Rfam assigns this 81-nucleotide RNA from Myotis myotis to the family "mir-574 microRNA precursor family". The family has 6 seed sequences and 4,084 matches in Rfam 15.1. Pairs were carried over by alignment from the consensus structure, which was predicted with RNAalifold. Rfam links the family to the GO terms miRNA-mediated post-transcriptional gene silencing and RISC complex. A search with the family's covariance model found it, with a score of 86 bits. Lineage of the source: Eukaryota > Opisthokonta > Euteleostomi > Theria > Myotis.
RNA sequence: AGGCCUGGAUAGAGAAGCAGGGUCUGAUCCAUAGCCUCCGUGGCAGGUAUUGAUCAGCCGUUGCCUCUCUCUUUCUCUCUA
Numbered sequence: 001a002g003g004c005c006u007g008g009a010u011a012g013a014g015a016a017g018c019a020g021g022g023u024c025u026g027a028u029c030c031a032u033a034g035c036c037u038c039c040g041u042g043g044c045a046g047g048u049a050u051u052g053a054u055c056a057g058c059c060g061u062u063g064c065c066u067c068u069c070u071c072u073u074u075c076u077c078u079c080u081a
Stems, first nucleotide, its partner, number of pairs: 008073002011070005017064004022059001024057006032049002035046001